Shown here is a 69-nucleotide sequence, a member of the family "tRNA".
The family's consensus secondary structure is taken from published work.
The sequence is in the family's curated seed alignment.
RNA sequence: AGAGAUUUAAGUUAAUAAAACUGAAAACCUUCAAAGUUUUAAAUAAGAGUGGAACUCUCUUAGUCUUUA
Numbered sequence: 001a002g003a004g005a006u007u008u009a010a011g012u013u014a015a016u017a018a019a020a021c022u023g024a025a026a027a028c029c030u031u032c033a034a035a036g037u038u039u040u041a042a043a044u045a046a047g048a049g050u051g052g053a054a055c056u057c058u059c060u061u062a063g064u065c066u067u068u069a
Stems, first nucleotide, its partner, number of pairs: 001068007010022004024040005045061005